[Rfam]
RNA sequence: AACUAAGGUAGAGGCGCAAAGUUUAAAAGUAAAACUGUGGAGAUAAGCACUAUGAAACGGUUCGAAAGGAAAUUUUGCCGAAGUGUACAGCUAAUGCUUUAAUGCUGUAGCACUGGGCUUGUAUAGAAUAUGUACAAGACUGUCACAAAGUGUAAUUGUGGAGAGCUAUCAUUGUU
Numbered sequence: 001a002a003c004u005a006a007g008g009u010a011g012a013g014g015c016g017c018a019a020a021g022u023u024u025a026a027a028a029g030u031a032a033a034a035c036u037g038u039g040g041a042g043a044u045a046a047g048c049a050c051u052a053u054g055a056a057a058c059g060g061u062u063c064g065a066a067a068g069g070a071a072a073u074u075u076u077g078c079c080g081a082a083g084u085g086u087a088c089a090g091c092u093a094a095u096g097c098u099u100u101a102a103u104g105c106u107g108u109a110g111c112a113c114u115g116g117g118c119u120u121g122u123a124u125a126g127a128a129u130a131u132g133u134a135c136a137a138g139a140c141u142g143u144c145a146c147a148a149a150g151u152g153u154a155a156u157u158g159u160g161g162a163g164a165g166c167u168a169u170c171a172u173u174g175u176u
Stems, first nucleotide, its partner, number of pairs: 007170005016078009033062006082114004086109006115141002118138008143161006
RNA: Lysine riboswitch aptamer